[Rfam]
RNA sequence: GGCCGGGUAACGCGCAGCUAUACAAGACCUUCGGGGAAAACUGCCGUCCGUGUAUUUGCGGGGUUCAGGUGCCUGGCCGCCUCUUU
Numbered sequence: 001g002g003c004c005g006g007g008u009a010a011c012g013c014g015c016a017g018c019u020a021u022a023c024a025a026g027a028c029c030u031u032c033g034g035g036g037a038a039a040a041c042u043g044c045c046g047u048c049c050g051u052g053u054a055u056u057u058g059c060g061g062g063g064u065u066c067a068g069g070u071g072c073c074u075g076g077c078c079g080c081c082u083c084u085u086u
Base pairs, nucleotide, nucleotide: 001078002077003076004075005074006073007072008071009070014044015043016042019039028035029034047062048061049060050059051058
Shown here is an 86-nucleotide RNA sequence from Oxalobacteraceae bacterium CAVE-383, a member of the family "sRNA-Xcc1". NCBI's taxonomy places the organism under Bacteria, Pseudomonadati, Betaproteobacteria, Burkholderiales, Oxalobacteraceae. The family has 74 seed sequences and 421 matches in Rfam 15.1. The literature on the family includes a 2011 paper in RNA Biol by Chen et al., "sRNA-Xcc1, an integron-encoded transposon- and plasmid-transferred trans-acting sRNA, is under the positive control of the key virulence regulators HrpG and HrpX of Xanthomonas campestris pathovar campestris".